[Rfam]
RNA sequence: UGGGUCUUUGCGGGCAAGAUGAGGGUGUUGGUUCAACUGGCCUACAAAGUCCCAGU
Numbered sequence: 001u002g003g004g005u006c007u008u009u010g011c012g013g014g015c016a017a018g019a020u021g022a023g024g025g026u027g028u029u030g031g032u033u034c035a036a037c038u039g040g041c042c043u044a045c046a047a048a049g050u051c052c053c054a055g056u
Stems, first nucleotide, its partner, number of pairs: 001054004006049005012043004017038002020035002
Dot-bracket structure: ((((.(((((.((((.((.((............)).)).)))).))))).))))..
Rfam assigns this 56-nucleotide RNA from Tupaia belangeri to the family "mir-193 microRNA precursor family". Its family is annotated with miRNA-mediated post-transcriptional gene silencing and RISC complex in the Gene Ontology. Lineage of the source: Eukaryota > Deuterostomia > Gnathostomata > Tupaiidae > Tupaia belangeri.